The family of this 579-nucleotide RNA sequence from Dysosmobacter welbionis is "Bacterial RNase P class A". The match comes from Rfam's covariance-model search (228 bits). Rfam links the family to the GO terms tRNA processing, dimeric ribonuclease P complex and ribonuclease P activity. Taxonomically the source falls in Dysosmobacter (Bacteria, Bacillota, Eubacteriales, Oscillospiraceae).
[Rfam]
RNA sequence: CGAGUAAGACAGACAGUCGCGCGGCCAGGCCGAAAGGCCGGUCGUGAGGAAAGUCCGGGCUCCACAGGGCAAGGAUAACGGGUAACGCCCGCCGAAGGCGACUUCAGGAAAAGUGCAACAGAGAUAUACCGCCGACAGAGUUACUCUGUAUCGGUCAGGGAACCAGCGACGGCUGAACGCGAUGCCCGCGGAGCGGGGCGAGGGAAACUUCCCCGAACAGCGCAAUCGCUUCCGCGCGGAACGGCGCAGGGGUGUUGUGUGAAGAGGGACGAAGGGUCCCUCUUCCUAAUUGCAAUCAGCCCGCCGCAGCGGCCGCUCCCGCGGGGAGCGGCAAGCCACCCUUACCGACAGAGAGUAGCUCUGUCGGUAAGGGUGGAAAGGCGAGGUAAGAGCUCACCCAUCGGCUGGAGACUGUCCGAUGCUGUAAACUCUAUCCGGAGCAACACCGGUAUGGGAGCAGGGGGUCCGACCCUCAAGGCUGGCCCGGCCGCUCCCGGGGUGGCUGGAGCGUACCGGCGACGGUACGUCGAGAUAGAUGACUGUUUGAUACAGAACCCGGCUUACAGUCUUGCUCGUACA
Numbered sequence: 001c002g003a004g005u006a007a008g009a010c011a012g013a014c015a016g017u018c019g020c021g022c023g024g025c026c027a028g029g030c031c032g033a034a035a036g037g038c039c040g041g042u043c044g045u046g047a048g049g050a051a052a053g054u055c056c057g058g059g060c061u062c063c064a065c066a067g068g069g070c071a072a073g074g075a076u077a078a079c080g081g082g083u084a085a086c087g088c089c090c091g092c093c094g095a096a097g098g099c100g101a102c103u104u105c106a107g108g109a110a111a112a113g114u115g116c117a118a119c120a121g122a123g124a125u126a127u128a129c130c131g132c133c134g135a136c137a138g139a140g141u142u143a144c145u146c147u148g149u150a151u152c153g154g155u156c157a158g159g160g161a162a163c164c165a166g167c168g169a170c171g172g173c174u175g176a177a178c179g180c181g182a183u184g185c186c187c188g189c190g191g192a193g194c195g196g197g198g199c200g201a202g203g204g205a206a207a208c209u210u211c212c213c214c215g216a217a218c219a220g221c222g223c224a225a226u227c228g229c230u231u232c233c234g235c236g237c238g239g240a241a242c243g244g245c246g247c248a249g250g251g252g253u254g255u256u257g258u259g260u261g262a263a264g265a266g267g268g269a270c271g272a273a274g275g276g277u278c279c280c281u282c283u284u285c286c287u288a289a290u291u292g293c294a295a296u297c298a299g300c301c302c303g304c305c306g307c308a309g310c311g312g313c314c315g316c317u318c319c320c321g322c323g324g325g326g327a328g329c330g331g332c333a334a335g336c337c338a339c340c341c342u343u344a345c346c347g348a349c350a351g352a353g354a355g356u357a358g359c360u361c362u363g364u365c366g367g368u369a370a371g372g373g374u375g376g377a378a379a380g381g382c383g384a385g386g387u388a389a390g391a392g393c394u395c396a397c398c399c400a401u402c403g404g405c406u407g408g409a410g411a412c413u414g415u416c417c418g419a420u421g422c423u424g425u426a427a428a429c430u431c432u433a434u435c436c437g438g439a440g441c442a443a444c445a446c447c448g449g450u451a452u453g454g455g456a457g458c459a460g461g462g463g464g465u466c467c468g469a470c471c472c473u474c475a476a477g478g479c480u481g482g483c484c485c486g487g488c489c490g491c492u493c494c495c496g497g498g499g500u501g502g503c504u505g506g507a508g509c510g511u512a513c514c515g516g517c518g519a520c521g522g523u524a525c526g527u528c529g530a531g532a533u534a535g536a537u538g539a540c541u542g543u544u545u546g547a548u549a550c551a552g553a554a555c556c557c558g559g560c561u562u563a564c565a566g567u568c569u570u571g572c573u574c575g576u577a578c579a
Stems, first nucleotide, its partner, number of pairs: 001575010012544007020046007028038001051562003055559005060440004068485002073436005079091004093107001094105004108431002113429002115425003129372002131368017380398002383395003400420005405414001407412001444501004453495006477489004508527008